[Rfam]
RNA: speF leader
RNA sequence: CGUUGACCCUCCAAAGGUCAACACCGAAGAGGCUUGUCCUUCAUUGCCGGCCGUGCGGGGAUAAAUCUCCCAAUCGACGGUGUUUUCGGGUCCGGACGUUUCGUCCGCUGUCCUUGGCGUCUCCAUCGCGCCUCGGAUCGCGAACGUUUCAA
Numbered sequence: 001c002g003u004u005g006a007c008c009c010u011c012c013a014a015a016g017g018u019c020a021a022c023a024c025c026g027a028a029g030a031g032g033c034u035u036g037u038c039c040u041u042c043a044u045u046g047c048c049g050g051c052c053g054u055g056c057g058g059g060g061a062u063a064a065a066u067c068u069c070c071c072a073a074u075c076g077a078c079g080g081u082g083u084u085u086u087c088g089g090g091u092c093c094g095g096a097c098g099u100u101u102c103g104u105c106c107g108c109u110g111u112c113c114u115u116g117g118c119g120u121c122u123c124c125a126u127c128g129c130g131c132c133u134c135g136g137a138u139c140g141c142g143a144a145c146g147u148u149u150c151a152a
Stems, first nucleotide, its partner, number of pairs: 002022007031048003055131003079093002103111002